Rfam assigns this 71-nucleotide RNA to the family "int-alpA RNA". Rfam describes the family as follows. Acidobacteria (1 example), Planctomycetes (1 example), Proteobacteria.
[Rfam]
RNA sequence: CAACAGGCUUACCCGACGGGGGACAAGCGUAAUUCCAUGAUACGCCUGCCUGUUGUUUUUAUAAAUCAUGG
Numbered sequence: 001c002a003a004c005a006g007g008c009u010u011a012c013c014c015g016a017c018g019g020g021g022g023a024c025a026a027g028c029g030u031a032a033u034u035c036c037a038u039g040a041u042a043c044g045c046c047u048g049c050c051u052g053u054u055g056u057u058u059u060u061a062u063a064a065a066u067c068a069u070g071g
Stems, first nucleotide, its partner, number of pairs: 001055008012021003027045005035071006